[Rfam]
RNA sequence: CUUUAAGGUACUCUAGCAGCACAUCAUGAUUUGUAUUUCAUAGUAAAUAUUGCAAGUCAUUAUUUGCUGCUUCAGAAUUUUAAGG
Numbered sequence: 001c002u003u004u005a006a007g008g009u010a011c012u013c014u015a016g017c018a019g020c021a022c023a024u025c026a027u028g029a030u031u032u033g034u035a036u037u038u039c040a041u042a043g044u045a046a047a048u049a050u051u052g053c054a055a056g057u058c059a060u061u062a063u064u065u066g067c068u069g070c071u072u073c074a075g076a077a078u079u080u081u082a083a084g085g
Stems, first nucleotide, its partner, number of pairs: 001085006015071007023063002026060010
This 85-nucleotide RNA sequence from Varanus komodoensis belongs to the Rfam family "mir-15 microRNA precursor family". Clan: mir-15 clan. Rfam describes the family as follows. This family represents the related mir-15a and mir-15b sequences. In humans miR-15a and miR-16 are clustered within 0.5 kb at 13q14. This region has been shown to be deleted in more than half of B cell chronic lymphocytic leukaemias (CLL). Both miR-15a and miR-16 are deleted or down-regulated in more than two thirds of CLL cases. The mature sequence is excised from the 5' arm of the hairpin. A reference for the family is Lagos-Quintana et al. (2001), "Identification of novel genes coding for small expressed RNAs", Science. Gene Ontology terms of the family: RISC complex and miRNA-mediated post-transcriptional gene silencing.